Source information:
Shown here is a 172-nucleotide sequence from Mycobacterium leprae, a member of the family "M-box riboswitch aptamer (ykoK leader)". The source organism's lineage runs through Bacteria, Bacillati, Actinomycetes, Mycobacteriaceae and Mycobacterium. Gene Ontology terms of the family: regulation of gene expression and response to magnesium ion. The family has 159 seed sequences and 1,095 matches in Rfam 15.1. For this family Rfam cites "New RNA motifs suggest an expanded scope for riboswitches in bacterial genetic control" (Barrick et al., Proc Natl Acad Sci U S A, 2004). M-box riboswitch, also know as ykoK leader is described as a metaloregulatory RNA that sense divalent metals and function as a genetic control element of genes related to divalent metal transport in bacteria. It was first reported upstream of the B.subtilis ykoK gene and genes with related functions in other bacteria.
RNA sequence: CAAGUGCCUCGUUAGGUGAGGGUUCUGCACGGAUAUAGGCCACUGACGUCGAACGAUGCCCAGGAGCAGGACAGUUCCUCCCAGAUUAAGGAGUUUGAGCCUAAAUUGUUUCCGGCUCUCAUUGAGCUGUACAUGUCGUUUGGUGCCAAAGCUCUGACGAUAGGGAGGCCGU
Numbered sequence: 001c002a003a004g005u006g007c008c009u010c011g012u013u014a015g016g017u018g019a020g021g022g023u024u025c026u027g028c029a030c031g032g033a034u035a036u037a038g039g040c041c042a043c044u045g046a047c048g049u050c051g052a053a054c055g056a057u058g059c060c061c062a063g064g065a066g067c068a069g070g071a072c073a074g075u076u077c078c079u080c081c082c083a084g085a086u087u088a089a090g091g092a093g094u095u096u097g098a099g100c101c102u103a104a105a106u107u108g109u110u111u112c113c114g115g116c117u118c119u120c121a122u123u124g125a126g127c128u129g130u131a132c133a134u135g136u137c138g139u140u141u142g143g144u145g146c147c148a149a150a151g152c153u154c155u156g157a158c159g160a161u162a163g164g165g166a167g168g169c170c171g172u
Stems, first nucleotide, its partner, number of pairs: 005168001008165003011158002013089001015153003020147002025143003029139004039109002042106001045067001047058004074100004081091002111131001113129005